[Rfam]
RNA sequence: GAAUAACACUGUUUUGCUAUUUCUAGCCAAUAACACAAUAACACGUGGAAAAGUUAUCCCACGUGUCAUUGUGUUAUUGGCCGAAUAUGGCAAAAAAUAUUAUUC
Numbered sequence: 001g002a003a004u005a006a007c008a009c010u011g012u013u014u015u016g017c018u019a020u021u022u023c024u025a026g027c028c029a030a031u032a033a034c035a036c037a038a039u040a041a042c043a044c045g046u047g048g049a050a051a052a053g054u055u056a057u058c059c060c061a062c063g064u065g066u067c068a069u070u071g072u073g074u075u076a077u078u079g080g081c082c083g084a085a086u087a088u089g090g091c092a093a094a095a096a097a098u099a100u101u102a103u104u105c
Stems, first nucleotide, its partner, number of pairs: 002104004012095009022085001024083001026081014041066008050057001
The family of this 105-nucleotide sequence from Prunus armeniaca is "MIR6274 microRNA precursor family". Gene Ontology terms of the family: miRNA-mediated post-transcriptional gene silencing and RISC complex. The family has 2 seed sequences and 342 matches in Rfam 15.1. Taxonomically the source falls in Prunus (Eukaryota, Gunneridae, fabids, Rosales).